RNA sequence: UGGACAGAUUAUUGUAUUCGACUGUAUUCACGACGUGAAACAAGGGAUUAUAUUUUUUUAAACGGAAAGUGAAUCAAUUAACAUAAUAGACUCCU
Numbered sequence: 001u002g003g004a005c006a007g008a009u010u011a012u013u014g015u016a017u018u019c020g021a022c023u024g025u026a027u028u029c030a031c032g033a034c035g036u037g038a039a040a041c042a043a044g045g046g047a048u049u050a051u052a053u054u055u056u057u058u059u060a061a062a063c064g065g066a067a068a069g070u071g072a073a074u075c076a077a078u079u080a081a082c083a084u085a086a087u088a089g090a091c092u093c094c095u
Stems, first nucleotide, its partner, number of pairs: 002094003009089007017081002020079002023076002026074006034064003037057001040056001042054002

Rfam assigns this 95-nucleotide RNA from Nicotiana sylvestris to the family "MIR6152 microRNA precursor family".
The base pairs follow the family's consensus structure, which was predicted with RNAalifold.